[Rfam]
RNA sequence: AUGCAAGGAUGGCCUGCUAAGUUCGUCUCAUCCAUGAGACAACGCAUGCACUAGCACAUCCUGUGCG
Numbered sequence: 001a002u003g004c005a006a007g008g009a010u011g012g013c014c015u016g017c018u019a020a021g022u023u024c025g026u027c028u029c030a031u032c033c034a035u036g037a038g039a040c041a042a043c044g045c046a047u048g049c050a051c052u053a054g055c056a057c058a059u060c061c062u063g064u065g066c067g
Base pairs, nucleotide, nucleotide: 012049013048015046016045017044025040026039027038028037029036054066055065056064057063
A member of the RNA family "Bacillaceae-1 RNA" from Brevibacillus brevis, 67 nucleotides long. The family's RNA type in Rfam is small RNA. It scores 50 bits against the family's covariance model. Lineage of the source: Bacteria > Bacillota > Caryophanales > Paenibacillaceae > Brevibacillus brevis.